[Rfam]
RNA sequence: CCGGCGAAUGCCGGUGGAACUACAGGAUGCCGAGGUCGCGGGUUCGAUCCCCGCCCGCCGUGAGGCGGUAGCUCAAUGGCAGAGCGCGGUACAUGUUUCACCCCCUUUUGUCGCCUUGAG
Number, nucleotide and partner (000 for none) at each position: 001c000002c000003g115004g114005c113006g112007a111008a000009u000010g000011c000012c000013g102014g101015u100016g099017g098018a097019a096020c000021u000022a000023c089024a000025g000026g000027a000028u000029g000030c000031c088032g087033a000034g000035g000036u000037c000038g054039c053040g052041g051042g050043u000044u000045c079046g000047a000048u000049c000050c042051c041052c040053g039054c038055c068056c067057g066058c065059c064060g000061u000062g000063a000064g059065g058066c057067g056068g055069u000070a000071g085072c084073u083074c082075a000076a000077u000078g000079g045080c000081a000082g074083a073084g072085c071086g000087c032088g031089g023090u000091a000092c000093a000094u000095g000096u019097u018098u017099c016100a015101c014102c013103c000104c000105c000106u000107u000108u000109u000110g000111u007112c006113g005114c004115c003116u000117u000118g000119a000120g000
RNA: Y RNA-like